The record is a 118-nucleotide RNA sequence, which matches "Group II catalytic intron D1-D4-2" in Rfam. On this family, see Bonen and Vogel, Trends Genet 2001: "The ins and outs of group II introns". Rfam describes the family as follows. Group II introns are found in rRNA, tRNA and mRNA of organelles in fungi, plants and protists, and also in mRNA in bacteria. It scores 127 bits against the family's covariance model.

RNA sequence: GAGGGUAGGUCCCUCGGAGUCGGCUUGCAGGAGCAGGCUUCAAACCACCUUAAGCUGCUGUGGUAAAGAGCCAUGGUGGUGAGCGUUAAGGAAAAGGCCCGGCAAGACCGGGUCAGGU
Numbered sequence: 001g002a003g004g005g006u007a008g009g010u011c012c013c014u015c016g017g018a019g020u021c022g023g024c025u026u027g028c029a030g031g032a033g034c035a036g037g038c039u040u041c042a043a044a045c046c047a048c049c050u051u052a053a054g055c056u057g058c059u060g061u062g063g064u065a066a067a068g069a070g071c072c073a074u075g076g077u078g079g080u081g082a083g084c085g086u087u088a089a090g091g092a093a094a095a096g097g098c099c100c101g102g103c104a105a106g107a108c109c110g111g112g113u114c115a116g117g118u
Stems, first nucleotide, its partner, number of pairs: 001015005016041006023034004046117001048091006054080002057077003061073004096114006
Dot-bracket structure: (((((.....)))))((((((.((((....)))).))))))....(.((((((((.(((.((((.....)))).))).)).....))))))....((((((.......))))))..).